[Rfam]
RNA: Glutamine riboswitch aptamer (glnA leader)
RNA sequence: AUCGUUCAACUCAUUAGAGUCGGAAGUAGGCGAUUGCCGAAGGAACGCACC
Numbered sequence: 001a002u003c004g005u006u007c008a009a010c011u012c013a014u015u016a017g018a019g020u021c022g023g024a025a026g027u028a029g030g031c032g033a034u035u036g037c038c039g040a041a042g043g044a045a046c047g048c049a050c051c
Base pairs, nucleotide, nucleotide: 003047004046005045006044007043009020010019011018012017023048029038030037031036